[Rfam]
RNA sequence: AGGCUCGUAAUUUCGCCUAAAGGCAGCCCGCGUCCUGCGGGCAACGGCGAAAUAUCGCCAUCGUGGCG
Number, nucleotide and partner (000 for none) at each position: 001a000002g000003g000004c000005u000006c000007g000008u000009a000010a000011u052012u051013u050014c049015g048016c047017c046018u000019a000020a000021a000022g000023g000024c000025a000026g000027c041028c040029c039030g038031c037032g000033u000034c000035c000036u000037g031038c030039g029040g028041g027042c000043a000044a000045c000046g017047g016048c015049g014050a013051a012052a011053u000054a000055u000056c068057g067058c066059c065060a000061u000062c000063g000064u000065g059066g058067c057068g056
Shown here is a 68-nucleotide sequence from Geobacillus lituanicus, a member of the family "Bacillaceae-1 RNA". It is annotated as a small RNA.